Rfam assigns this 181-nucleotide RNA sequence from Bacillus sp. Y1 to the family "Lysine riboswitch aptamer". Lineage of the source: Bacteria > Bacillota > Caryophanales > Bacillaceae > Bacillus. About the family: Riboswitches are metabolite binding domains within certain messenger RNAs that serve as precision sensors for their corresponding targets. Allosteric rearrangement of mRNA structure is mediated by ligand binding, and this results in modulation of gene expression. This family includes riboswitches that sense lysine in a number of genes involved in lysine metabolism, including lysC. The base pairs follow the family's consensus structure, which is taken from published work.

RNA sequence: AGUGAAGGUAGAGGUGCGAGCACCAAUAGUACCAGCUUUGAGAAUGCUGAGAUUCAAUGAGAAGCUGUGAAAGGGGAUGUUCGCCGAAGUGGAUAGGUCUCUGAAUUGCCAUAUCUGCUGGUCCUGUAUUGAAUAAAUACUGGAUUGUCAAGACUGUAUGUCUUGGAGAGCUAUCUCACUG
Numbered sequence: 001a002g003u004g005a006a007g008g009u010a011g012a013g014g015u016g017c018g019a020g021c022a023c024c025a026a027u028a029g030u031a032c033c034a035g036c037u038u039u040g041a042g043a044a045u046g047c048u049g050a051g052a053u054u055c056a057a058u059g060a061g062a063a064g065c066u067g068u069g070a071a072a073g074g075g076g077a078u079g080u081u082c083g084c085c086g087a088a089g090u091g092g093a094u095a096g097g098u099c100u101c102u103g104a105a106u107u108g109c110c111a112u113a114u115c116u117g118c119u120g121g122u123c124c125u126g127u128a129u130u131g132a133a134u135a136a137a138u139a140c141u142g143g144a145u146u147g148u149c150a151a152g153a154c155u156g157u158a159u160g161u162c163u164u165g166g167a168g169a170g171c172u173a174u175c176u177c178a179c180u181g
Stems, first nucleotide, its partner, number of pairs: 006176006016084006023076002033067007088119008097110001099108001120146005126140005148166007